[Rfam]
RNA sequence: CCCUUUGCAAGCGGGAUCAGAGCGCCUAUGUAUAGGGUGUUCGCGCAAGCGGACUAUGGACAUAAACGCGCUCGUAAUACGCGGAUCGGACCCGGGGGCGGUACCCGGCGACUCCACCAAACAUCCUUCAUUUUGGGGAUCAUGGGGUCGAAACAGGAUCGACGAACGUCUAAAGGGGUUAUGCUUUGUCUCGGUGAGGUACCACCGUUAUCGGUCCGAAACGUACAGUUGCAAAUGACAACCGUGCUCCGGUGGCCGUUGCUGCGUAAGCAGUAACCAAACCGAAACUUAAGCCCUUGCGCUUAGCCGCGUAAGGCGGGGUUCGCAGGCACCUGGCAACAGAAGCCUGCACU
Numbered sequence: 001c002c003c004u005u006u007g008c009a010a011g012c013g014g015g016a017u018c019a020g021a022g023c024g025c026c027u028a029u030g031u032a033u034a035g036g037g038u039g040u041u042c043g044c045g046c047a048a049g050c051g052g053a054c055u056a057u058g059g060a061c062a063u064a065a066a067c068g069c070g071c072u073c074g075u076a077a078u079a080c081g082c083g084g085a086u087c088g089g090a091c092c093c094g095g096g097g098g099c100g101g102u103a104c105c106c107g108g109c110g111a112c113u114c115c116a117c118c119a120a121a122c123a124u125c126c127u128u129c130a131u132u133u134u135g136g137g138g139a140u141c142a143u144g145g146g147g148u149c150g151a152a153a154c155a156g157g158a159u160c161g162a163c164g165a166a167c168g169u170c171u172a173a174a175g176g177g178g179u180u181a182u183g184c185u186u187u188g189u190c191u192c193g194g195u196g197a198g199g200u201a202c203c204a205c206c207g208u209u210a211u212c213g214g215u216c217c218g219a220a221a222c223g224u225a226c227a228g229u230u231g232c233a234a235a236u237g238a239c240a241a242c243c244g245u246g247c248u249c250c251g252g253u254g255g256c257c258g259u260u261g262c263u264g265c266g267u268a269a270g271c272a273g274u275a276a277c278c279a280a281a282c283c284g285a286a287a288c289u290u291a292a293g294c295c296c297u298u299g300c301g302c303u304u305a306g307c308c309g310c311g312u313a314a315g316g317c318g319g320g321g322u323u324c325g326c327a328g329g330c331a332c333c334u335g336g337c338a339a340c341a342g343a344a345g346c347c348u349g350c351a352c353u
Base pairs, nucleotide, nucleotide: 039054040053041052042051043050058191059190060189061188062187068184069183070179071178072177073176082168083167086165087164088163092108093107094106095105096104109150110149111148112147113146114145115144192207193206194205195204198217199216201215202214203213319334320333321332322331325350326349327348328347329346330345
Alphaproteobacteria transfer-messenger RNA: a 353-nucleotide RNA sequence from Roseovarius sp. 217. Bacterial tmRNA, also known as 10Sa RNA or SsrA, is named for its dual tRNA and mRNA-like properties. NCBI's taxonomy places the organism under Bacteria, Alphaproteobacteria, Rhodobacterales, Roseobacteraceae, Roseovarius. Rfam classes the family as a non-coding RNA gene. It is one of the family's seed sequences. The base pairs follow the family's consensus structure, which is taken from published work.